Record summary:
The record is an 80-nucleotide RNA from Noviherbaspirillum pedocola, which matches "SAH (S-adenosyl-L-homocysteine) riboswitch aptamer" in Rfam. Gene Ontology terms of the family: regulation of gene expression and S-adenosylhomocysteine metabolic process. It scores 63 bits against the family's covariance model. Pairs were carried over by alignment from the consensus structure, which is taken from published work. For this family Rfam cites "Riboswitches that sense S-adenosylhomocysteine and activate genes involved in coenzyme recycling" (Wang et al., Mol Cell, 2008).
RNA sequence: UUCGUCAAGGAGCGUUGCGACAGGAUUCCCCAUCCUGCCAGGCUUGACGGAACUUCCUGAUUCAACCGCGCUCACGUUCA
Numbered sequence: 001u002u003c004g005u006c007a008a009g010g011a012g013c014g015u016u017g018c019g020a021c022a023g024g025a026u027u028c029c030c031c032a033u034c035c036u037g038c039c040a041g042g043c044u045u046g047a048c049g050g051a052a053c054u055u056c057c058u059g060a061u062u063c064a065a066c067c068g069c070g071c072u073c074a075c076g077u078u079c080a
Stems, first nucleotide, its partner, number of pairs: 002050007021037006